[Rfam]
RNA: Small Cajal body specific RNA 6
RNA sequence: GGUCUGUGAUGAGCAGUAAAAGGUCUGAUUACCCACAAUCCUCUCCUGCUGCCCUCUGGCUCCCAGCAGCCCCUGCUCUGUGCUCUCAUUAUGCUCUAGUGCUGCAGUGGUGGUCCCAGGAGCUGCUGACAGACAACAGGAUGUGACAUCACAGUGAGUCUGUACAGAGACCCUACAGGCUCAGUGUGAUGAUGACUGACAUCCAACAGAACCAAUCAGCAUGGAGUGUGAGGGGCAGGAGGAGGCGGGGCCUGAUCUCAAGUUUUCAACCUGAGACC
Dot-bracket structure: ((((..............................(.(.(..((((((((..........(((((((((((...............(((((((.(.........)..)))))))........)))))))...........(((((..........((((((((((.........))))))))))...............)))))...................))))........))))))))...........).).)................))))
Numbered sequence: 001g002g003u004c005u006g007u008g009a010u011g012a013g014c015a016g017u018a019a020a021a022g023g024u025c026u027g028a029u030u031a032c033c034c035a036c037a038a039u040c041c042u043c044u045c046c047u048g049c050u051g052c053c054c055u056c057u058g059g060c061u062c063c064c065a066g067c068a069g070c071c072c073c074u075g076c077u078c079u080g081u082g083c084u085c086u087c088a089u090u091a092u093g094c095u096c097u098a099g100u101g102c103u104g105c106a107g108u109g110g111u112g113g114u115c116c117c118a119g120g121a122g123c124u125g126c127u128g129a130c131a132g133a134c135a136a137c138a139g140g141a142u143g144u145g146a147c148a149u150c151a152c153a154g155u156g157a158g159u160c161u162g163u164a165c166a167g168a169g170a171c172c173c174u175a176c177a178g179g180c181u182c183a184g185u186g187u188g189a190u191g192a193u194g195a196c197u198g199a200c201a202u203c204c205a206a207c208a209g210a211a212c213c214a215a216u217c218a219g220c221a222u223g224g225a226g227u228g229u230g231a232g233g234g235g236c237a238g239g240a241g242g243a244g245g246c247g248g249g250g251c252c253u254g255a256u257c258u259c260a261a262g263u264u265u266u267c268a269a270c271c272u273g274a275g276a277c278c
Stems, first nucleotide, its partner, number of pairs: 001278004035258001037256001039254001042242008060226004064128007086113007094104001140203005155183010